[Rfam]
RNA sequence: UGACGGGGGCCCGCACAAGCGGUGGAGCAUGUGGUUUAAUUCGAUGCAACGCGAAGAACCUUACCUACUCUUGACAUCCAUAGAAUUCUGCAGAGAUGCGGAAGUGCCUUCGGGAACUAUGAGACAGGUGCUGCAUGGCUGUCGUCAGCUCGUGUUGUGAAAUGUUGGGUUAAGUCCCGCAACGAGCGCAACCCUUAUCCUUUGUUGCCAGCGAUUCGGUCGGGAACUCAAAGGAGACUGCCAGUGAUAAACUGGAGGAAGGUGGGGAUGACGUCAAGUCAUCAUGGCCCUUACGAGUAGGGCUACACACGUGCUACAAUGGUGCAUACAGAGGGCUACGAUACCGCGAGGUGGAGUGAAUCUCAGAAAGUGCAUCUAAGUCCGGAUUGGAGUCUGCAACUCGACUCCAUGAAGUCGGAAUCGCUAGUAAUCGCGAAUCAGAAUGUCGCGGUGAAUACGUUCCCGGGCCUUGUACACACCGCCCGUCACACCAUGGGAGUGGGUUGUACCAGAAGUAGAUAGCUUAACCGAGAGGGGGGCGUUUACCACGGUAUGAUUCAUGACUGGGGUGAAGUCGUAACAAGG
Numbered sequence: 001u002g003a004c005g006g007g008g009g010c011c012c013g014c015a016c017a018a019g020c021g022g023u024g025g026a027g028c029a030u031g032u033g034g035u036u037u038a039a040u041u042c043g044a045u046g047c048a049a050c051g052c053g054a055a056g057a058a059c060c061u062u063a064c065c066u067a068c069u070c071u072u073g074a075c076a077u078c079c080a081u082a083g084a085a086u087u088c089u090g091c092a093g094a095g096a097u098g099c100g101g102a103a104g105u106g107c108c109u110u111c112g113g114g115a116a117c118u119a120u121g122a123g124a125c126a127g128g129u130g131c132u133g134c135a136u137g138g139c140u141g142u143c144g145u146c147a148g149c150u151c152g153u154g155u156u157g158u159g160a161a162a163u164g165u166u167g168g169g170u171u172a173a174g175u176c177c178c179g180c181a182a183c184g185a186g187c188g189c190a191a192c193c194c195u196u197a198u199c200c201u202u203u204g205u206u207g208c209c210a211g212c213g214a215u216u217c218g219g220u221c222g223g224g225a226a227c228u229c230a231a232a233g234g235a236g237a238c239u240g241c242c243a244g245u246g247a248u249a250a251a252c253u254g255g256a257g258g259a260a261g262g263u264g265g266g267g268a269u270g271a272c273g274u275c276a277a278g279u280c281a282u283c284a285u286g287g288c289c290c291u292u293a294c295g296a297g298u299a300g301g302g303c304u305a306c307a308c309a310c311g312u313g314c315u316a317c318a319a320u321g322g323u324g325c326a327u328a329c330a331g332a333g334g335g336c337u338a339c340g341a342u343a344c345c346g347c348g349a350g351g352u353g354g355a356g357u358g359a360a361u362c363u364c365a366g367a368a369a370g371u372g373c374a375u376c377u378a379a380g381u382c383c384g385g386a387u388u389g390g391a392g393u394c395u396g397c398a399a400c401u402c403g404a405c406u407c408c409a410u411g412a413a414g415u416c417g418g419a420a421u422c423g424c425u426a427g428u429a430a431u432c433g434c435g436a437a438u439c440a441g442a443a444u445g446u447c448g449c450g451g452u453g454a455a456u457a458c459g460u461u462c463c464c465g466g467g468c469c470u471u472g473u474a475c476a477c478a479c480c481g482c483c484c485g486u487c488a489c490a491c492c493a494u495g496g497g498a499g500u501g502g503g504u505u506g507u508a509c510c511a512g513a514a515g516u517a518g519a520u521a522g523c524u525u526a527a528c529c530g531a532g533a534g535g536g537g538g539g540c541g542u543u544u545a546c547c548a549c550g551g552u553a554u555g556a557u558u559c560a561u562g563a564c565u566g567g568g569g570u571g572a573a574g575u576c577g578u579a580a581c582a583a584g585g
Stems, first nucleotide, its partner, number of pairs: 001476002003473003007470007015460002019424005024317001026315008034306002040055004064301007077124002079121005086103007105116001107114002127290002130288004136284002138279003141275001143273002148187006154163003166179004193267004198235007208224002212222003238258002241255005321376007333364003338357002343352003383414001388409007430452007479584001481581001484577002489571004494566003499561012515546006522540004528535002
RNA: Bacterial small subunit ribosomal RNA, nucleotides 919 to 1503
Organism: Actinobacillus indolicus